Rfam assigns this 99-nucleotide RNA sequence from endosymbiont 'TC1' of Trimyema compressum to the family "THF (Tetrahydrofolate) riboswitch aptamer". Taxonomically the source falls in Bacillota (Bacteria, Bacillati). On this family, see Ames et al., Chem Biol 2010: "A eubacterial riboswitch class that senses the coenzyme tetrahydrofolate". Rfam links the family to the GO term tetrahydrofolate metabolic process.

RNA sequence: UAUAGAGUAGGAAACAUUCGGUAAAGACUUACUAGACGGGAAAUUGUUAGUAAGGGAAAAAACAUUUGUUUUGCUUGUUUGUUUUUGCAUUCCGCUAUA
Numbered sequence: 001u002a003u004a005g006a007g008u009a010g011g012a013a014a015c016a017u018u019c020g021g022u023a024a025a026g027a028c029u030u031a032c033u034a035g036a037c038g039g040g041a042a043a044u045u046g047u048u049a050g051u052a053a054g055g056g057a058a059a060a061a062a063c064a065u066u067u068g069u070u071u072u073g074c075u076u077g078u079u080u081g082u083u084u085u086u087g088c089a090u091u092c093c094g095c096u097a098u099a
Base pairs, nucleotide, nucleotide: 001099002098003097004096005095010086011085012084013083014082015081016080019077020075021074022073028054029053030052031051032050033049034048035047039092040091041090059072060071061070062069

Description
Rfam's curators write: Tetrahydrofolate (THF) riboswitch was first reported for Ames et al. as an RNA motif in 5' untranslated (5'-UTR)regions of folate transport and biosynthesis genes in Firmicutes genomes.